[Rfam]
RNA sequence: UAAGCCUUUAAUUCAGUCCCGUGAGGCUGAGAAGGAAACGGUUAUGUUAUAGGCAGGACAAGGCCUGUAACUGAAUUAACAUGUCUUCCUCUCGCCAAGAUCGGUGAGAGGUUUUUUAUU
Numbered sequence: 001u002a003a004g005c006c007u008u009u010a011a012u013u014c015a016g017u018c019c020c021g022u023g024a025g026g027c028u029g030a031g032a033a034g035g036a037a038a039c040g041g042u043u044a045u046g047u048u049a050u051a052g053g054c055a056g057g058a059c060a061a062g063g064c065c066u067g068u069a070a071c072u073g074a075a076u077u078a079a080c081a082u083g084u085c086u087u088c089c090u091c092u093c094g095c096c097a098a099g100a101u102c103g104g105u106g107a108g109a110g111g112u113u114u115u116u117u118a119u120u
Stems, first nucleotide, its partner, number of pairs: 005035005013030006041076003046071009088111009

The family of this 120-nucleotide RNA from Neobacillus cucumis is "PyrR binding site". The base pairs follow the family's consensus structure, which is taken from published work.